[Rfam]
drz-agam-2-2 ribozyme: a 194-nucleotide sequence from Anopheles gambiae. The match comes from Rfam's covariance-model search (145 bits). Pairs were carried over by alignment from the consensus structure, which is taken from published work. The family has 5 seed sequences and 486 matches in Rfam 15.1. Taxonomically the source falls in Anopheles gambiae (Eukaryota, Opisthokonta, Panarthropoda, Altocrustacea).
RNA sequence: AGAAUUCCUUGCUCUGCAAUGGGAUGGGAUCCGAAGCCCCUCGAGGGAUAAUACAGGCUCUCCCAUCCAACUCCUAUUCCGACACGUCCUCGUCGUGCAGAGUGGUAUCAUAUGCCUCCAUAUAUCCUAGUUUGGGUACACGGGCUAGAUCCAACCCCUUGAGCGGAUGGUGGCACAUGGCUGUUUUUUUUUUG
Dot-bracket structure: ..........(((((((....((((((((.((.......................))...))))))))...[........[[.(((.[[....))))))))))]]..((((.((((.((....((((....((((((...........)))))).(......).)))))).)))).)))).....]]......]